[Rfam]
RNA sequence: CGGACCGGGAUGCAGCAAUCCAAGGCAGAGGCGGGGGAACCACCAGCGGCGGCCGAGGCCGCCUUGGGGUGAAGCCCGCAGCACGCUCGGGACACUGGCAUGCAGGAUCCAUCCGUGGAUACCCGUGUGCCCAGACCCGUGCGGCUGGGCCGAGUCCGGACUCUCUGGCUCGAACCCGACAGCUAACUUCGCAGGCGCUUGACGAGAGAGGGA
Dot-bracket structure: (..........................)..((((((....((......................))(((.....((((...................................................................))))..((((............))))...))).........)))))).....................
RNA: c-di-AMP riboswitch aptamer (ydaO/yuaA leader)